[Rfam]
RNA sequence: CGCGGACCGCGCAACUGGCGUUCACGGACCCCGCCCGGGGUCCGAGGUGGGUCAACCACCAGGGAGCGCGGUCGCUGCCGGCCCGCUUCGGGGCUCGUCAGCAGUUUCUUUGCCGUGCGCCUGGGCAGCCCAC
Dot-bracket structure: ....((((((((..(([[[[[.........................((((.....))))..))..))))))))....................................(((((..]]]]]..))))).....

Background:
The record is a 133-nucleotide RNA from Sphaerotilus montanus, which matches "ZMP/ZTP riboswitch aptamer (pfl RNA motif)" in Rfam. NCBI's taxonomy places the organism under Bacteria, Betaproteobacteria, Burkholderiales, Sphaerotilaceae, Sphaerotilus.